[Rfam]
RNA sequence: AAGAGUUUCCCUGUUCUCUCAAAACAGGGUGGUGGAGUCAUUAUGACCCUCGUUGAGUUUCCAGUUUCUCUAAAAAACUGGUGGCGAGCCUGCUC
Numbered sequence: 001a002a003g004a005g006u007u008u009c010c011c012u013g014u015u016c017u018c019u020c021a022a023a024a025c026a027g028g029g030u031g032g033u034g035g036a037g038u039c040a041u042u043a044u045g046a047c048c049c050u051c052g053u054u055g056a057g058u059u060u061c062c063a064g065u066u067u068c069u070c071u072a073a074a075a076a077a078c079u080g081g082u083g084g085c086g087a088g089c090c091u092g093c094u095c
Base pairs, nucleotide, nucleotide: 009029010028011027012026013025014024015023055070056069057068061081062080063079064078065077066076

The record is a 95-nucleotide RNA from Nerrivikvirus srim2, which matches "wcaG RNA" in Rfam.
Pairs were carried over by alignment from the consensus structure, which is taken from published work.
The family's RNA type in Rfam is cis-regulatory element.